[Rfam]
Nucleotides: 030
Base pairs, nucleotide, nucleotide: 011025012024013023014022
Number, partner (000 for none) and nucleotide at each position: 001000g002000u003000u004000u005000c006000a007000g008000a009000c010000g011025a012024a013023c014022u015000c016000u017000c018000g019000u020000g021000a022014g023013g024012u025011u026000g027000a028000a029000g030000c
Rfam assigns this 30-nucleotide RNA from Halohasta litchfieldiae to the family "CRISPR RNA direct repeat element". Lineage of the source: Archaea > Methanobacteriati > Methanobacteriota > Halobacteria > Halohasta. Rfam 15.1 lists 2,265 matches to the family in 51 species. Its family is annotated with defense response in the Gene Ontology. It scores 37 bits against the family's covariance model. Pairs were carried over by alignment from the consensus structure, which was predicted with WAR.